[Rfam]
RNA sequence: UCGGGUAGUUGUCAGCGGACUACUGUGAGCCUAGUUUGGGCCGGUAUUUGGAUGAUGGAUUGCUUGAGGCUGGAAUCACGUGCAUCACGGUUACUUAGGUAUACCGUCCAUGAGAAGCUUGGUGUGGGCAUUCUGUCCUGGGCGUAGGCCCGAGGCAAGAGGUCCCUGAGUAACCCUCUGCUACAGGCCAGCAAUGGAACAGUAGAAAUGAGGGUAGCACUGGGCAGUCUGGUGGAUCGCGGGAAUUAGUUUGGGCUGUGGUGCAUGCCAGUCUUGGGUUGAGACUCCCAUCCGUUU
Numbered sequence: 001u002c003g004g005g006u007a008g009u010u011g012u013c014a015g016c017g018g019a020c021u022a023c024u025g026u027g028a029g030c031c032u033a034g035u036u037u038g039g040g041c042c043g044g045u046a047u048u049u050g051g052a053u054g055a056u057g058g059a060u061u062g063c064u065u066g067a068g069g070c071u072g073g074a075a076u077c078a079c080g081u082g083c084a085u086c087a088c089g090g091u092u093a094c095u096u097a098g099g100u101a102u103a104c105c106g107u108c109c110a111u112g113a114g115a116a117g118c119u120u121g122g123u124g125u126g127g128g129c130a131u132u133c134u135g136u137c138c139u140g141g142g143c144g145u146a147g148g149c150c151c152g153a154g155g156c157a158a159g160a161g162g163u164c165c166c167u168g169a170g171u172a173a174c175c176c177u178c179u180g181c182u183a184c185a186g187g188c189c190a191g192c193a194a195u196g197g198a199a200c201a202g203u204a205g206a207a208a209u210g211a212g213g214g215u216a217g218c219a220c221u222g223g224g225c226a227g228u229c230u231g232g233u234g235g236a237u238c239g240c241g242g243g244a245a246u247u248a249g250u251u252u253g254g255g256c257u258g259u260g261g262u263g264c265a266u267g268c269c270a271g272u273c274u275u276g277g278g279u280u281g282a283g284a285c286u287c288c289c290a291u292c293c294g295u296u297u
Base pairs, nucleotide, nucleotide: 001044002043003042004024005023006022007021008020009019010018029041030040031039049294050293051292052291053290054289057286060284061283063281067274068273069272070271071270072269073268079267080266081265082264083263084262085261086260088258089257090256091255092254094253097250104242105241106240107239108235109234111232113230114229115228117225118224119223120222121221122220123219124218125217126165127164128163129162131160132159134157135156136155137154139152140151141150142149143148166170173215174214175213176212177211178210179207181205182204183203188197189196190195
Rfam assigns this 297-nucleotide sequence from Dissophora globulifera to the family "Metazoan signal recognition particle RNA". The signal recognition particle (SRP) is a universally conserved ribonucleoprotein. It is involved in the co-translational targeting of proteins to membranes. The eukaryotic SRP consists of a 300-nucleotide 7S RNA and six proteins: SRPs 72, 68, 54, 19, 14, and 9. Archaeal SRP consists of a 7S RNA and homologues of the eukaryotic SRP19 and SRP54 proteins. The match comes from Rfam's covariance-model search (82 bits). By type it is a non-coding RNA gene.